RNA: Glycine riboswitch aptamer
Organism: Peptoclostridium litorale
Nucleotides: 110
Stems, first nucleotide, its partner, number of pairs: 006105008020038004040090003043086002047084003053077010
Number, partner (000 for none) and nucleotide at each position: 001000a002000a003000g004000a005000a006105g007104g008103g009102u010101a011100u012099g013098a014000a015000a016000g017000a018000g019000a020038g021037u022036u023035c024000g025000a026000g027000u028000u029000u030000u031000u032000u033000a034000c035023g036022a037021a038020c039000c040090g041089c042088c043086g044085a045000a046000g047084g048083g049082a050000c051000a052000a053077a054076c055075u056074u057073u058072g059071g060070a061069g062068u063000u064000a065000g066000c067000c068062g069061c070060u071059c072058u073057a074056a075055a076054g077053u078000g079000a080000a081000a082049u083048u084047c085044u086043c087000a088042g089041g090040c091000a092000a093000a094000a095000g096000g097000a098013u099012c100011a101010u102009a103008u104007c105006u106000g107000g108000a109000c110000a